[Rfam]
RNA: Glycine riboswitch aptamer
Organism: Rhodococcus sp. SMB37
RNA sequence: CGACGUCUCGCGGGAGAGUCCCGGACCAACACAUCCGGGCGCCGAAGGAGCAGCACCUCUCCGUCAAUCUCUCAGGCACCCAGGACCGCGUGAGCUAC
Numbered sequence: 001c002g003a004c005g006u007c008u009c010g011c012g013g014g015a016g017a018g019u020c021c022c023g024g025a026c027c028a029a030c031a032c033a034u035c036c037g038g039g040c041g042c043c044g045a046a047g048g049a050g051c052a053g054c055a056c057c058u059c060u061c062c063g064u065c066a067a068u069c070u071c072u073c074a075g076g077c078a079c080c081c082a083g084g085a086c087c088g089c090g091u092g093a094g095c096u097a098c
Base pairs, nucleotide, nucleotide: 006093007092009090010089011088012087013086020039021038022037023036024035025034041077042076043075044073045072048071049070050069055064056063